[Rfam]
RNA sequence: AAGGCGUCCCCGAAAAGCCUGUAACAGAGUAGGGA
Numbered sequence: 001a002a003g004g005c006g007u008c009c010c011c012g013a014a015a016a017g018c019c020u021g022u023a024a025c026a027g028a029g030u031a032g033g034g035a
Stems, first nucleotide, its partner, number of pairs: 002020004010033002
Dot-bracket structure: .((((....[[.....))))...........]]..
This 35-nucleotide RNA sequence belongs to the Rfam family "DUF805b RNA".
The base pairs follow the family's consensus structure, which is taken from published work.
By type it is a cis-regulatory element.
The sequence is in the family's curated seed alignment.